[Rfam]
RNA sequence: GCGGUACCGGUUCACGCCCGGCGUUAACAGUGCUAGCCCAGGGGGACGACCCCCUGGACCCCCCGGCGCGGGACGACCCGGCGACC
Numbered sequence: 001g002c003g004g005u006a007c008c009g010g011u012u013c014a015c016g017c018c019c020g021g022c023g024u025u026a027a028c029a030g031u032g033c034u035a036g037c038c039c040a041g042g043g044g045g046a047c048g049a050c051c052c053c054c055u056g057g058a059c060c061c062c063c064c065g066g067c068g069c070g071g072g073a074c075g076a077c078c079c080g081g082c083g084a085c086c
Base pairs, nucleotide, nucleotide: 003086004085005084007081008080009079010078015075016074018072019071021069022068023067024066025065